[Rfam]
Nucleotides: 059
Base pairs, nucleotide, nucleotide: 001057002056003055004054005053006052007051008050009049010048011047013045014044015043018040019039020038021037
Number, partner (000 for none) and nucleotide at each position: 001057a002056g003055g004054u005053c006052u007051g008050a009049u010048a011047g012000u013045c014044u015043a016000u017000c018040u019039u020038u021037c022000c023000a024000u025000g026000a027000u028000g029000u030000a031000a032000a033000a034000c035000u036000u037021g038020g039019a040018a041000c042000u043015u044014a045013g046000u047011c048010u049009a050008u051007c052006g053005g054004a055003u056002c057001u058000g059000g
mir-7385 microRNA precursor family: a 59-nucleotide RNA from Phascolarctos cinereus. Rfam 15.1 lists 10 matches to the family in 2 species. Lineage of the source: Eukaryota > Craniata > Euteleostomi > Diprotodontia > Phascolarctos.